Source information
Rfam assigns this 125-nucleotide sequence from Bucco capensis to the family "Small nucleolar RNA ACA64". Pairs were carried over by alignment from the consensus structure, which was predicted with WAR. A search with the family's covariance model found it, with a score of 54 bits. The family has 30 seed sequences and 9,537 matches in Rfam 15.1.
Nucleotides: 125
Stems, first nucleotide, its partner, number of pairs: 006050001008048001013043001014041003021034004065118001068115004077106005085098003
Number, partner (000 for none) and nucleotide at each position: 001000u002000c003000a004000u005000u006050c007000u008048g009000a010000a011000a012000a013043u014041c015040a016039c017000u018000u019000g020000g021034g022033g023032u024031c025000u026000u027000u028000u029000g030000u031024g032023g033022c034021c035000c036000c037000u038000g039016g040015u041014g042000c043013a044000a045000a046000a047000a048008c049000u050006g051000u052000g053000c054000c055000a056000a057000c058000a059000g060000c061000a062000g063000a064000g065118g066000g067000u068115g069114c070113a071112u072000u073000a074000a075000a076000c077106u078105c079104a080103u081102u082000g083000c084000c085098c086097a087096u088000g089000g090000u091000a092000a093000a094000g095000u096087g097086u098085g099000g100000g101000g102081a103080g104079u105078g106077a107000u108000a109000c110000c111000c112071a113070u114069g115068u116000u117000c118065c119000u120000a121000u122000a123000a124000u125000c

Source information:
By type it is an H/ACA-box small nucleolar RNA. NCBI's taxonomy places the organism under Eukaryota, Opisthokonta, Aves, Bucconidae, Bucco.